[Rfam]
RNA sequence: CGCACCUAAAAGCGUUUUCUUGCCAGCCCGUUAACUGCUCUUGAAAAUCGUAGAUGUGUGCCAGAGCAACCUUUGCAACAGCAAGUGAUCUGGGUUCUCCUGUAACUUUUAUCCGUUGACGUUGUAAACAUUU
Numbered sequence: 001c002g003c004a005c006c007u008a009a010a011a012g013c014g015u016u017u018u019c020u021u022g023c024c025a026g027c028c029c030g031u032u033a034a035c036u037g038c039u040c041u042u043g044a045a046a047a048u049c050g051u052a053g054a055u056g057u058g059u060g061c062c063a064g065a066g067c068a069a070c071c072u073u074u075g076c077a078a079c080a081g082c083a084a085g086u087g088a089u090c091u092g093g094g095u096u097c098u099c100c101u102g103u104a105a106c107u108u109u110u111a112u113c114c115g116u117u118g119a120c121g122u123u124g125u126a127a128a129c130a131u132u133u
Stems, first nucleotide, its partner, number of pairs: 002061004006056001012051003015047005022038002025036001073127007084117004088112002093107004
RNA: Small nucleolar RNA psi28S-3316